[Rfam]
RNA sequence: ACAAAGGCUCUUUUAAGAGCCACCGCACAUUUAUCAAAAGAGUUGUU
Number, nucleotide and partner (000 for none) at each position: 001a000002c000003a000004a000005a000006g021007g020008c019009u018010c017011u016012u000013u000014u000015a000016a011017g010018a009019g008020c007021c006022a000023c000024c000025g000026c000027a000028c000029a000030u000031u000032u000033a000034u000035c000036a000037a000038a000039a000040g000041a000042g000043u000044u000045g000046u000047u000

A member of the RNA family "Histone 3' UTR stem-loop" from Collichthys lucidus, 47 nucleotides long. Lineage of the source: Eukaryota > Actinopteri > Euacanthomorphacea > Sciaenidae > Collichthys. Rfam describes the family as follows. The mRNAs of metazoan histone genes lack a poly-A tail. 3' end processing occurs at a site between a highly conserved stem-loop (modelled by this family) and a purine rich region around 20 nts downstream (the histone downstream element, or HDE). It is annotated as a cis-regulatory element. A search with the family's covariance model found it, with a score of 40 bits.